[Rfam]
RNA: MIR159 microRNA precursor family
Organism: Lactuca sativa
RNA sequence: AAAGUAUGAAGGGAGCUCCCUUCAGUCCAACCGUAGAGAACUUAAGAUCCAAUUUGUCUCCCGCAUCAUUCAUUCAUUUACUAAGAAUCAUGCUCUUGGCUUAGUAUUUGGAUGAAUGAGUCGGCAGCUAAUUGGAAUCUUACCAUAACCCAUGAAUGGAUUGAAGAAAGCUCUCUUACUUUCUUAA
Numbered sequence: 001a002a003a004g005u006a007u008g009a010a011g012g013g014a015g016c017u018c019c020c021u022u023c024a025g026u027c028c029a030a031c032c033g034u035a036g037a038g039a040a041c042u043u044a045a046g047a048u049c050c051a052a053u054u055u056g057u058c059u060c061c062c063g064c065a066u067c068a069u070u071c072a073u074u075c076a077u078u079u080a081c082u083a084a085g086a087a088u089c090a091u092g093c094u095c096u097u098g099g100c101u102u103a104g105u106a107u108u109u110g111g112a113u114g115a116a117u118g119a120g121u122c123g124g125c126a127g128c129u130a131a132u133u134g135g136a137a138u139c140u141u142a143c144c145a146u147a148a149c150c151c152a153u154g155a156a157u158g159g160a161u162u163g164a165a166g167a168a169a170g171c172u173c174u175c176u177u178a179c180u181u182u183c184u185u186a187a
Stems, first nucleotide, its partner, number of pairs: 013173005020166001023163007036150001058127002061124003067118004075110001